A member of the RNA family "transfer-messenger RNA" from Gemmiger formicilis, 353 nucleotides long. Bacterial tmRNA, also known as 10Sa RNA or SsrA, is named for its dual tRNA and mRNA-like properties. Its role is to liberate the mRNA from a stalled ribosome. To accomplish this part of the tmRNA is used as a reading frame that ends in a translation stop signal. The broken mRNA is replaced in the ribosome by the tmRNA and translation of the tmRNA leads to addition of a proteolysis tag to the incomplete protein enabling recognition by a protease. Recently a number of permuted tmRNA genes have been found encoded in two parts. tmRNAs have been identified in eubacteria and some chloroplasts but are absent from archaeal and eukaryote nuclear genomes. Taxonomically the source falls in Gemmiger (Bacteria, Bacillati, Eubacteriales, Oscillospiraceae). The family's RNA type in Rfam is non-coding RNA gene. The match comes from Rfam's covariance-model search (156 bits). The base pairs follow the family's consensus structure, which is taken from published work.
[Rfam]
RNA sequence: GGGGCUGUAAUGGUUUCGACGGGGAGAGAGAGGCGUGAGCAGCGGGCCGUGGCGGUGACCCACGAUAAAAGCGCCAACUUAAAUUAACUGACAACAAUUAUCCUGUUGCCGUAGCUGCCUAAUUAGGCGCUGCCGUCCUGCCCGUGUUAGUACCGCAUGGGGUCAGGGCGUCGAUUAGGUACUGAACGUGAACGGGCUUAAGCUUUGCGGCCCGGCAUGAACUUAUGAAGCUACCAAGGUGUAGUGCGUGUGUGCUCGCCCGCACCAAGGGAAAUUUAAUAAACACACUGCGCCCGGAGAUACUCUAACUGAUUUCUUUUCGGACACGGGUUCGACUCCCGUCAGCUCCACCA
Numbered sequence: 001g002g003g004g005c006u007g008u009a010a011u012g013g014u015u016u017c018g019a020c021g022g023g024g025a026g027a028g029a030g031a032g033g034c035g036u037g038a039g040c041a042g043c044g045g046g047c048c049g050u051g052g053c054g055g056u057g058a059c060c061c062a063c064g065a066u067a068a069a070a071g072c073g074c075c076a077a078c079u080u081a082a083a084u085u086a087a088c089u090g091a092c093a094a095c096a097a098u099u100a101u102c103c104u105g106u107u108g109c110c111g112u113a114g115c116u117g118c119c120u121a122a123u124u125a126g127g128c129g130c131u132g133c134c135g136u137c138c139u140g141c142c143c144g145u146g147u148u149a150g151u152a153c154c155g156c157a158u159g160g161g162g163u164c165a166g167g168g169c170g171u172c173g174a175u176u177a178g179g180u181a182c183u184g185a186a187c188g189u190g191a192a193c194g195g196g197c198u199u200a201a202g203c204u205u206u207g208c209g210g211c212c213c214g215g216c217a218u219g220a221a222c223u224u225a226u227g228a229a230g231c232u233a234c235c236a237a238g239g240u241g242u243a244g245u246g247c248g249u250g251u252g253u254g255c256u257c258g259c260c261c262g263c264a265c266c267a268a269g270g271g272a273a274a275u276u277u278a279a280u281a282a283a284c285a286c287a288c289u290g291c292g293c294c295c296g297g298a299g300a301u302a303c304u305c306u307a308a309c310u311g312a313u314u315u316c317u318u319u320u321c322g323g324a325c326a327c328g329g330g331u332u333c334g335a336c337u338c339c340c341g342u343c344a345g346c347u348c349c350a351c352c353a
Base pairs, nucleotide, nucleotide: 001349002348003347004346005345006344007343020322021321022320023319024318025317026316027315028314029313032310033309037305038304039303041301043296044295045294046293047292048064049063050062051061052060054075055074056073057072111133112132113131114130115129118126134170135169136168137167138166139165141161142160143159144158145157146156147155151184152183193214194213195212196211197210201232202231203230204229205228206227234270235269238266239265240264241263242262246259247258248257250288251287252286253285326342327341328340329339330338